[Rfam]
The record is a 138-nucleotide sequence from Gossypium armourianum, which matches "Small nucleolar RNA snoR77" in Rfam. Rfam 15.1 lists 649 matches to the family in 221 species. It is annotated as an H/ACA-box small nucleolar RNA.

RNA sequence: AGGCAGCCUACUUGCCUUAAAUCGCCAUGGCAAUGCGGGUGUUAAACUGCUCGUAUAGUAAAUACUGCUUUUGCUCUUCAGUCUUGCUGAGAUUCAUUUAUUGUUCGUUGAAGCUGGACUAGUAAGCCUAAGCACAUU
Numbered sequence: 001a002g003g004c005a006g007c008c009u010a011c012u013u014g015c016c017u018u019a020a021a022u023c024g025c026c027a028u029g030g031c032a033a034u035g036c037g038g039g040u041g042u043u044a045a046a047c048u049g050c051u052c053g054u055a056u057a058g059u060a061a062a063u064a065c066u067g068c069u070u071u072u073g074c075u076c077u078u079c080a081g082u083c084u085u086g087c088u089g090a091g092a093u094u095c096a097u098u099u100a101u102u103g104u105u106c107g108u109u110g111a112a113g114c115u116g117g118a119c120u121a122g123u124a125a126g127c128c129u130a131a132g133c134a135c136a137u138u
Stems, first nucleotide, its partner, number of pairs: 002043004007039002012033005068132003073127003080120005086114003091106002